[Rfam]
RNA: Ocean-VII RNA
RNA sequence: UGAGUGUCAGGGAUCAGAGAGUGGGAACAAGCCACUCAGAC
Numbered sequence: 001u002g003a004g005u006g007u008c009a010g011g012g013a014u015c016a017g018a019g020a021g022u023g024g025g026a027a028c029a030a031g032c033c034a035c036u037c038a039g040a041c
Stems, first nucleotide, its partner, number of pairs: 019037006